The family of this 102-nucleotide RNA sequence from Prevotella brunnea is "engA RNA".
RNA sequence: GCCCUGACUGCAUGGUAGGGCACACUCUCGCACAAUGCGAGGGCCGGGAACCGGUCAUUCCAGGCAAUUACGUUUGAAGGCACCCGACCACGCCUUCACAAC
Dot-bracket structure: ((((((.........))))))....((((((.....))))))(((.((((.......)))).)))..........((((((..........)))))).....

The match comes from Rfam's covariance-model search (73 bits). The source organism's lineage runs through Bacteria, Bacteroidota, Bacteroidia, Bacteroidales and Prevotella. Rfam classes the family as a cis-regulatory element.